[Rfam]
RNA sequence: CACUUCUUGUACAAGCACUGUGCUAAAACUAUGGAAGUCGGGGUUCUGCCUCUUCCUCUGUAGUAAUGCUAGCAUGGUACACACGAGAAGAAAAGUAAAUGCACUGGAUCUGUAAAAGACUAGGGUGGACCUCUUUCUUAAUGUUCAGUGUCCUGGUCUGGAGACUUGGUGCAACACUA
Numbered sequence: 001c002a003c004u005u006c007u008u009g010u011a012c013a014a015g016c017a018c019u020g021u022g023c024u025a026a027a028a029c030u031a032u033g034g035a036a037g038u039c040g041g042g043g044u045u046c047u048g049c050c051u052c053u054u055c056c057u058c059u060g061u062a063g064u065a066a067u068g069c070u071a072g073c074a075u076g077g078u079a080c081a082c083a084c085g086a087g088a089a090g091a092a093a094a095g096u097a098a099a100u101g102c103a104c105u106g107g108a109u110c111u112g113u114a115a116a117a118g119a120c121u122a123g124g125g126u127g128g129a130c131c132u133c134u135u136u137c138u139u140a141a142u143g144u145u146c147a148g149u150g151u152c153c154u155g156g157u158c159u160g161g162a163g164a165c166u167u168g169g170u171g172c173a174a175c176a177c178u179a
Base pairs, nucleotide, nucleotide: 018077019076021074022073023072024071025070028067030065031064034058035057037055040052041051042050043049044048100173101172102171103170104169105168106167107166122151124149126147127146128145129144

Rfam assigns this 179-nucleotide sequence from Anolis carolinensis to the family "Small nucleolar RNA SNORA81". The family has 28 seed sequences and 1,161 matches in Rfam 15.1. On this family, see Gu et al., Nucleic Acids Res 2005: "A novel experimental approach for systematic identification of box H/ACA snoRNAs from eukaryotes". NCBI's taxonomy places the organism under Eukaryota, Bilateria, Sarcopterygii, Tetrapoda, Anolis. The family's RNA type in Rfam is H/ACA-box small nucleolar RNA. Rfam's curators put it in the seed alignment.